Shown here is a 79-nucleotide sequence from Synaphobranchus kaupii, a member of the family "mir-130 microRNA precursor family". Pairs were carried over by alignment from the consensus structure, which was predicted with PFOLD. On this family, see Houbaviy et al., Dev Cell 2003: "Embryonic stem cell-specific MicroRNAs". The organism belongs to Synaphobranchus, within Eukaryota.
[Rfam]
RNA sequence: UACUGCCCGAGCCUCUUUCCCUGUUGCACUACUGUUAGAUCAGCUAGCAGUGCAAUAAUGAAAGGGCAUCGGUCAGCCA
Numbered sequence: 001u002a003c004u005g006c007c008c009g010a011g012c013c014u015c016u017u018u019c020c021c022u023g024u025u026g027c028a029c030u031a032c033u034g035u036u037a038g039a040u041c042a043g044c045u046a047g048c049a050g051u052g053c054a055a056u057a058a059u060g061a062a063a064g065g066g067c068a069u070c071g072g073u074c075a076g077c078c079a
Base pairs, nucleotide, nucleotide: 001079005074007072008071009070010069013066014065015064016063017062018061019060022057023056024055025054026053027052028051029050030049